[Rfam]
RNA sequence: GGAAUAUAAGAAUCCAUCUCUUAACUUUUAAUUAAAAAAAGUUAAGAAUCAGCUCUUAAAUAAGAGUUUUAAAAACCAGUUCUUAGCUUUUUUAGUUAAAAGUUAAGAGAGACGGAUUCUUAUAUUCC
Dot-bracket structure: (((((((((((((((.(((((((((((((((((((((((..(((((((...............................))))))).)))))))))))))))))))))..)).)))))))))))))))
The family of this 128-nucleotide RNA sequence from Brassica cretica is "MIR9563 microRNA precursor family". The source organism's lineage runs through Eukaryota, eudicotyledons, Brassicales, Brassicaceae and Brassica.